[Rfam]
RNA sequence: UAUUAGGUUGGUGCAGAAGUAAUUGUGGUUUUUGCCUUAAUUUUAUGGCAAAAACCACAAUUACUUUUGCACCAACCUAAUA
Dot-bracket structure: ((((((((((((((((((((((((((((((((((((.((....)).))))))))))))))))))))))))))))))))))))

The family of this 82-nucleotide RNA from Gorilla gorilla is "mir-548 microRNA precursor family". On this family, see Witten et al., BMC Biol 2010: "Ultra-high throughput sequencing-based small RNA discovery and discrete statistical biomarker analysis in a collection of cervical tumours and matched controls". The source organism's lineage runs through Eukaryota, Eumetazoa, Sarcopterygii, Theria and Gorilla gorilla.